The record is a 101-nucleotide RNA sequence from Paenibacillus paeoniae, which matches "Guanidine-I riboswitch aptamer" in Rfam. The match comes from Rfam's covariance-model search (83 bits). The organism belongs to Paenibacillus, within Bacteria. Rfam links the family to the GO term regulation of gene expression. This family represents a conserved RNA structure found upstream of the ykkC and yxkD genes in Bacillus subtilis and related genes in other bacteria. The function of this family is unclear although it has been suggested that it may function to switch on efflux pumps and detoxification systems in response to harmful environmental molecules.

[Rfam]
RNA sequence: AUAAUAGUCUUCUAGGGUUCCGCGGCGCUUAGCCGGUCUGGUCCGAGGGAAGACCCGCGGCUGCAGCCACGGCAACACGGAGGGAUAAAAGCCCGGGAGAA
Numbered sequence: 001a002u003a004a005u006a007g008u009c010u011u012c013u014a015g016g017g018u019u020c021c022g023c024g025g026c027g028c029u030u031a032g033c034c035g036g037u038c039u040g041g042u043c044c045g046a047g048g049g050a051a052g053a054c055c056c057g058c059g060g061c062u063g064c065a066g067c068c069a070c071g072g073c074a075a076c077a078c079g080g081a082g083g084g085a086u087a088a089a090a091g092c093c094c095g096g097g098a099g100a101a
Stems, first nucleotide, its partner, number of pairs: 007054006015044002020041002022038001023035004055072003059068002076096001078099001082094003